[Rfam]
RNA sequence: CCGCUGGGCCGGACGGCCGCUGCUGCAUCGGUUUACGCCCGGUUCGCCGGGGCCGUACUGAUGUGGGGGAGGAAAGUCCGAACUCCGCAGAGUGGUGUGCCGGAUAACGUCCGGGAGGGCGCCGUUAAGGGCGUUCGACGGAAAGUGCCACAGAGAACAUACCGCCCGCCGCAAGGCAGGUAAGGGUGAAAAGGUGCGGUAAGAGCGCACCGGGCGCGCAGUGAUGCGCGUUGCAUGGCAAACCCCACACGGAGCAAGACCAAAUAGGGGAGAAGUUCGCGGGGCAACUCGCGAUGCGUGCUGACUCGGUGCGCCAAACUUCCGGGUAGGUCGCUUGAGCCAGUCAGUAAUGAUUGGCCCAGAGGAAUGGUCGUCCCGCCGGCGCAAGCCGGUGGACAGAAUUCGGCUUAUAGGCCCGGCGGCUAA
Numbered sequence: 001c002c003g004c005u006g007g008g009c010c011g012g013a014c015g016g017c018c019g020c021u022g023c024u025g026c027a028u029c030g031g032u033u034u035a036c037g038c039c040c041g042g043u044u045c046g047c048c049g050g051g052g053c054c055g056u057a058c059u060g061a062u063g064u065g066g067g068g069g070a071g072g073a074a075a076g077u078c079c080g081a082a083c084u085c086c087g088c089a090g091a092g093u094g095g096u097g098u099g100c101c102g103g104a105u106a107a108c109g110u111c112c113g114g115g116a117g118g119g120c121g122c123c124g125u126u127a128a129g130g131g132c133g134u135u136c137g138a139c140g141g142a143a144a145g146u147g148c149c150a151c152a153g154a155g156a157a158c159a160u161a162c163c164g165c166c167c168g169c170c171g172c173a174a175g176g177c178a179g180g181u182a183a184g185g186g187u188g189a190a191a192a193g194g195u196g197c198g199g200u201a202a203g204a205g206c207g208c209a210c211c212g213g214g215c216g217c218g219c220a221g222u223g224a225u226g227c228g229c230g231u232u233g234c235a236u237g238g239c240a241a242a243c244c245c246c247a248c249a250c251g252g253a254g255c256a257a258g259a260c261c262a263a264a265u266a267g268g269g270g271a272g273a274a275g276u277u278c279g280c281g282g283g284g285c286a287a288c289u290c291g292c293g294a295u296g297c298g299u300g301c302u303g304a305c306u307c308g309g310u311g312c313g314c315c316a317a318a319c320u321u322c323c324g325g326g327u328a329g330g331u332c333g334c335u336u337g338a339g340c341c342a343g344u345c346a347g348u349a350a351u352g353a354u355u356g357g358c359c360c361a362g363a364g365g366a367a368u369g370g371u372c373g374u375c376c377c378g379c380c381g382g383c384g385c386a387a388g389c390c391g392g393u394g395g396a397c398a399g400a401a402u403u404c405g406g407c408u409u410a411u412a413g414g415c416c417c418g419g420c421g422g423c424u425a426a
Stems, first nucleotide, its partner, number of pairs: 001422010011411001012375007020069002023066010074409003078406005083254004091310001093308001095250005100114005115139001117136007140245002145243002147239003162185002164181003168177003193211006212234001213232008258332004268323005302316002305313001339358008